Source information:
Rfam assigns this 91-nucleotide sequence from Punica granatum to the family "Small nucleolar RNA R16". The family's RNA type in Rfam is C/D-box small nucleolar RNA. The organism belongs to Punica, within Eukaryota.
RNA sequence: UGUGGCAAAUGAUGAACGUUUAUAUGUUAUUUAUUCUACACUCAGAUUGAGCAGUGUUGACUACAAACUCUGCUUAUUAUCUGAUGCCAUG
Numbered sequence: 001u002g003u004g005g006c007a008a009a010u011g012a013u014g015a016a017c018g019u020u021u022a023u024a025u026g027u028u029a030u031u032u033a034u035u036c037u038a039c040a041c042u043c044a045g046a047u048u049g050a051g052c053a054g055u056g057u058u059g060a061c062u063a064c065a066a067a068c069u070c071u072g073c074u075u076a077u078u079a080u081c082u083g084a085u086g087c088c089a090u091g
Stems, first nucleotide, its partner, number of pairs: 003089005
Dot-bracket structure: ..(((((.............................................................................)))))..